RNA: Glycine riboswitch aptamer
Organism: Crassaminicella thermophila
RNA sequence: CUCUGGAGAGACUCUUAUUGAGCACCGAAGGAGCAAGCCGAUAAUUUUAUCGGUGAAACUCUCAGGUAAAAGGACAGAG
Dot-bracket structure: (((((......(((.....))).(((((..(((...(((((((....)))))))....))))).))).......)))))